[Rfam]
RNA sequence: AACGACCGGCUGGACACUCAUGUGCCCGGCCCACAAGUGGAGCUCCGUUCUCCCACCUCGCCCGGCCUCAGGCCGGCAGGUCUCCGGUCAGGCGGCGCCCAUCGUUCCGUACGGACGAUGGAGCUGCCCGAUGCGCCCCGCGGCAUGCCGUGGCGGUGUUCCGGUUUUAUGGAGCCCCGCCUGUGUCCCGUCGGGGCAUUUUUG
Numbered sequence: 001a002a003c004g005a006c007c008g009g010c011u012g013g014a015c016a017c018u019c020a021u022g023u024g025c026c027c028g029g030c031c032c033a034c035a036a037g038u039g040g041a042g043c044u045c046c047g048u049u050c051u052c053c054c055a056c057c058u059c060g061c062c063c064g065g066c067c068u069c070a071g072g073c074c075g076g077c078a079g080g081u082c083u084c085c086g087g088u089c090a091g092g093c094g095g096c097g098c099c100c101a102u103c104g105u106u107c108c109g110u111a112c113g114g115a116c117g118a119u120g121g122a123g124c125u126g127c128c129c130g131a132u133g134c135g136c137c138c139c140g141c142g143g144c145a146u147g148c149c150g151u152g153g154c155g156g157u158g159u160u161c162c163g164g165u166u167u168u169a170u171g172g173a174g175c176c177c178c179g180c181c182u183g184u185g186u187c188c189c190g191u192c193g194g195g196g197c198a199u200u201u202u203u204g
Stems, first nucleotide, its partner, number of pairs: 004089006012027002028082004034060001035058001037056004041051002062076006091128005099121008135197006141190003149185003152181005158175005
Shown here is a 204-nucleotide sequence from Streptomyces klenkii, a member of the family "Streptomyces RNA 1601".
On this family, see Vockenhuber et al., RNA Biol 2011: "Deep sequencing-based identification of small non-coding RNAs in Streptomyces coelicolor".
Taxonomically the source falls in Streptomyces (Bacteria, Actinomycetota, Actinomycetes, Kitasatosporales).
Rfam describes the family as follows. Identified by deep sequencing of transcriptome at the end of exponential growth phase.